[Rfam]
RNA sequence: GCAUCGAUAGGGGAUGGAGUCCCCCCAAACCGCCGCAAGGCUGAUGACUCCUACCAGGUG
Numbered sequence: 001g002c003a004u005c006g007a008u009a010g011g012g013g014a015u016g017g018a019g020u021c022c023c024c025c026c027a028a029a030c031c032g033c034c035g036c037a038a039g040g041c042u043g044a045u046g047a048c049u050c051c052u053a054c055c056a057g058g059u060g
Stems, first nucleotide, its partner, number of pairs: 010025004016051006032041003
Dot-bracket structure: .........[[[[..((((((]]]]......(((....)))....)))))).........
Source information
The family of this 60-nucleotide RNA sequence from Labrys okinawensis is "Fluoride riboswitch aptamer (crcB RNA motif)". A search with the family's covariance model found it, with a score of 58 bits. NCBI's taxonomy places the organism under Bacteria, Pseudomonadati, Pseudomonadota, Xanthobacteraceae, Labrys. The base pairs follow the family's consensus structure, which is taken from published work. The literature on the family includes a 2012 paper in Science by Baker et al., "Widespread genetic switches and toxicity resistance proteins for fluoride".